[Rfam]
A member of the RNA family "dfrA-dnaX RNA" from Parvimonas sp. oral taxon 393, 77 nucleotides long.
The family's RNA type in Rfam is small RNA.
Rfam's curators put it in the seed alignment.
NCBI's taxonomy places the organism under Bacteria, Bacillati, Bacillota, Parvimonas, Parvimonas sp. oral taxon 393.
RNA sequence: ACGCCAAGUGGUAAAGAUAAAGUAAUUUCACCAUAAUAACAUUAAUCUUAGCAAUAAAAAAGAAAUUAUGGUAUAAU
Numbered sequence: 001a002c003g004c005c006a007a008g009u010g011g012u013a014a015a016g017a018u019a020a021a022g023u024a025a026u027u028u029c030a031c032c033a034u035a036a037u038a039a040c041a042u043u044a045a046u047c048u049u050a051g052c053a054a055u056a057a058a059a060a061a062g063a064a065a066u067u068a069u070g071g072u073a074u075a076a077u
Base pairs, nucleotide, nucleotide: 030072031071032070033069034068035067036066037065